[Rfam]
RNA sequence: AGCCCUAUUGUGGGGGCCAUACCAAGAGCAUUCAUGUUGCAGCCCUGUCAGAGUCUCUGAAUCUGAGACUGCUGCU
Numbered sequence: 001a002g003c004c005c006u007a008u009u010g011u012g013g014g015g016g017c018c019a020u021a022c023c024a025a026g027a028g029c030a031u032u033c034a035u036g037u038u039g040c041a042g043c044c045c046u047g048u049c050a051g052a053g054u055c056u057c058u059g060a061a062u063c064u065g066a067g068a069c070u071g072c073u074g075c076u
Stems, first nucleotide, its partner, number of pairs: 014045004021076001023074002027070001028040003049065004054060002